A member of the RNA family "skipping-rope RNA", 97 nucleotides long. Pairs were carried over by alignment from the consensus structure, which is taken from published work. It is annotated as a small RNA.
RNA sequence: GUUAUCUGAGGUGGAAGAUUUCGUGGCAUCCACACGCCGAUGGUACCGACAGGGGAAACCCGAGAGAUGCAGGAGUAAGCCACGCCUGCCGGAUAAC
Number, nucleotide and partner (000 for none) at each position: 001g097002u096003u095004a094005u093006c092007u091008g090009a000010g000011g033012u032013g031014g030015a029016a000017g000018a000019u000020u000021u000022c000023g083024u082025g081026g080027c079028a000029u015030c014031c013032a012033c011034a000035c064036g044037c043038c042039g000040a000041u000042g038043g037044u036045a000046c000047c000048g000049a000050c000051a000052g000053g000054g000055g000056a000057a000058a000059c000060c000061c000062g000063a000064g035065a000066g000067a000068u000069g089070c088071a087072g086073g085074a000075g000076u000077a000078a000079g027080c026081c025082a024083c023084g000085c073086c072087u071088g070089c069090c008091g007092g006093a005094u004095a003096a002097c001